The family of this 121-nucleotide RNA from Streptomyces sp. ADI96-02 is "Streptomyces-metH RNA".

Nucleotides: 121
Stems, first nucleotide, its partner, number of pairs: 060083004065077004086100002089098003
Number, partner (000 for none) and nucleotide at each position: 001000g002000c003000a004000g005000u006000c007000c008000g009000c010000c011000c012000c013000a014000u015000g016000g017000a018000c019000g020000c021000u022000c023000c024000g025000a026000c027000c028000a029000c030000g031000u032000g033000g034000c035000g036000g037000a038000c039000c040000a041000u042000c043000c044000g045000g046000c047000u048000a049000c050000g051000c052000u053000g054000g055000c056000c057000g058000g059000g060083u061082g062081c063080g064000c065077c066076u067075u068074c069000c070000u071000g072000g073000a074068g075067g076066a077065g078000g079000a080063c081062g082061c083060a084000a085000a086100g087099c088000c089098g090097a091096c092000a093000g094000c095000c096091g097090u098089c099087g100086c101000a102000u103000c104000c105000c106000u107000g108000g109000g110000a111000g112000a113000u114000c115000a116000u117000c118000c119000a120000u121000g